[Rfam]
RNA sequence: UCGUCAGUGAGGUAUAUCCUGACCUGUUCCUCCUCCGGGAGAAACAGUGAAAUGAUGAAUGGAGGCAGCAUGAGACAUGAUUAGAGUCUCCCGCUGGCCGGGGAACGCAACGCCCCGGCCUGCUCCUUUCUGAU
Numbered sequence: 001u002c003g004u005c006a007g008u009g010a011g012g013u014a015u016a017u018c019c020u021g022a023c024c025u026g027u028u029c030c031u032c033c034u035c036c037g038g039g040a041g042a043a044a045c046a047g048u049g050a051a052a053u054g055a056u057g058a059a060u061g062g063a064g065g066c067a068g069c070a071u072g073a074g075a076c077a078u079g080a081u082u083a084g085a086g087u088c089u090c091c092c093g094c095u096g097g098c099c100g101g102g103g104a105a106c107g108c109a110a111c112g113c114c115c116c117g118g119c120c121u122g123c124u125c126c127u128u129u130c131u132g133a134u
Stems, first nucleotide, its partner, number of pairs: 024047003028043001030041004072090002075087002078083001095122001096120007

Rfam assigns this 134-nucleotide RNA sequence from Anolis carolinensis to the family "U8 small nucleolar RNA".
The family has 55 seed sequences and 1,597 matches in Rfam 15.1.
A reference for the family is Peculis et al. (2001), "The U8 snoRNA gene family: identification and characterization of distinct, functional U8 genes in Xenopus", Gene.